[Rfam]
RNA sequence: AACGCUAGUGCGUUAAGAAAAUGAACUCAAUUUUAAAUCAUACUUGGUGGUGGACUUCUCGAAAAACGAUUCGUGAAUAAACUCCUACGUAUAUUUAUUUUAAAUAUUAAAAAGGCUUGUC
Numbered sequence: 001a002a003c004g005c006u007a008g009u010g011c012g013u014u015a016a017g018a019a020a021a022u023g024a025a026c027u028c029a030a031u032u033u034u035a036a037a038u039c040a041u042a043c044u045u046g047g048u049g050g051u052g053g054a055c056u057u058c059u060c061g062a063a064a065a066a067c068g069a070u071u072c073g074u075g076a077a078u079a080a081a082c083u084c085c086u087a088c089g090u091a092u093a094u095u096u097a098u099u100u101u102a103a104a105u106a107u108u109a110a111a112a113a114g115g116c117u118u119g120u121c
Stems, first nucleotide, its partner, number of pairs: 036096002040092004045087003049083003056075001058073001059069003
The record is a 121-nucleotide RNA sequence from Lacinutrix sp. 5H-3-7-4, which matches "Bacteroidete tryptophan peptide leader RNA" in Rfam.
The family's RNA type in Rfam is cis-regulatory leader.
Gene Ontology terms of the family: S-adenosylmethionine metabolic process and regulation of gene expression.